Nucleotides: 061
Base pairs, nucleotide, nucleotide: 001061002060005020006019007018008017022038023037024036025035026034043059044058045057046056047055
Number, partner (000 for none) and nucleotide at each position: 001061u002060g003000u004000g005020g006019u007018g008017u009000a010000a011000u012000g013000g014000u015000u016000a017008g018007c019006a020005c021000u022038u023037u024036g025035g026034a027000c028000u029000u030000u031000g032000a033000a034026u035025c036024c037023a038022g039000c040000g041000a042000u043059c044058c045057g046056a047055g048000u049000u050000c051000a052000a053000a054000u055047c056046u057045c058044g059043g060002c061001a
A member of the RNA family "tRNA" from Helobdella robusta, 61 nucleotides long.
A search with the family's covariance model found it, with a score of 49 bits.
The source organism's lineage runs through Eukaryota, Lophotrochozoa, Annelida, Clitellata and Helobdella.
The family's RNA type in Rfam is transfer RNA.